[Rfam]
RNA sequence: UCACCCCGGACGGGAGAGUCCUCGUGGCGGCACGGCCGACCUUUCGGGUCGGGCGGGCCGGAUGCGGGGCGCCGAAGGAGCAAAUUCUCCCCGGAAUCUCUCAGGCCCCUGGACCGUCCGGGUCAG
Dot-bracket structure: .....((((((((......(((((((....................................))))))).(((((..(((....(.......)....))))).))).......)))))))).....
Numbered sequence: 001u002c003a004c005c006c007c008g009g010a011c012g013g014g015a016g017a018g019u020c021c022u023c024g025u026g027g028c029g030g031c032a033c034g035g036c037c038g039a040c041c042u043u044u045c046g047g048g049u050c051g052g053g054c055g056g057g058c059c060g061g062a063u064g065c066g067g068g069g070c071g072c073c074g075a076a077g078g079a080g081c082a083a084a085u086u087c088u089c090c091c092c093g094g095a096a097u098c099u100c101u102c103a104g105g106c107c108c109c110u111g112g113a114c115c116g117u118c119c120g121g122g123u124c125a126g
Stems, first nucleotide, its partner, number of pairs: 006121008020069007071106003074102002078100003085093001